Rfam assigns this 109-nucleotide sequence from Halanaerobium hydrogeniformans to the family "PyrR binding site". The family's consensus secondary structure is taken from published work. The family has 41 seed sequences and 1,498 matches in Rfam 15.1. A search with the family's covariance model found it, with a score of 66 bits. The source organism's lineage runs through Bacteria, Clostridia, Halanaerobiales, Halanaerobiaceae and Halanaerobium. Rfam links the family to the GO terms pyrimidine nucleobase biosynthetic process and pyrimidine nucleobase transport.
RNA sequence: AUUUCCUUUAAAUCAGUCCAGUGAGGCAGAUAAGGAGAAAACAUAGAGCUAUUUUAAUGCUCUGAAUUUGUUAACUUCUUAUCAGUCUGACUGUUAAGAAGUUUUUUAA
Numbered sequence: 001a002u003u004u005c006c007u008u009u010a011a012a013u014c015a016g017u018c019c020a021g022u023g024a025g026g027c028a029g030a031u032a033a034g035g036a037g038a039a040a041a042c043a044u045a046g047a048g049c050u051a052u053u054u055u056a057a058u059g060c061u062c063u064g065a066a067u068u069u070g071u072u073a074a075c076u077u078c079u080u081a082u083c084a085g086u087c088u089g090a091c092u093g094u095u096a097a098g099a100a101g102u103u104u105u106u107u108a109a
Base pairs, nucleotide, nucleotide: 003037004036005035006034007033008032013030014029016027017026018025039069040068041067044064045063046062047061048060049059051058052057073103074102075101076100077099078098079097080096081095083093084092085091